[Rfam]
RNA: Molybdenum/Tungsten riboswitch aptamer (Moco RNA motif)
RNA sequence: UAGACCAGCUUUCUCCGAGUUCACGGCCUAAGGCCCAUGGGGCUAAGGCCGGCGAACCGACAGGGUGUGCCCGGAAACGGGCACGCCUCCCAUUGCGGAAAGGAGAAGGGCGGUUUCCGGU
Numbered sequence: 001u002a003g004a005c006c007a008g009c010u011u012u013c014u015c016c017g018a019g020u021u022c023a024c025g026g027c028c029u030a031a032g033g034c035c036c037a038u039g040g041g042g043c044u045a046a047g048g049c050c051g052g053c054g055a056a057c058c059g060a061c062a063g064g065g066u067g068u069g070c071c072c073g074g075a076a077a078c079g080g081g082c083a084c085g086c087c088u089c090c091c092a093u094u095g096c097g098g099a100a101a102g103g104a105g106a107a108g109g110g111c112g113g114u115u116u117c118c119g120g121u
Stems, first nucleotide, its partner, number of pairs: 003115002006112001011107006019057004024051005032044004063088011089098002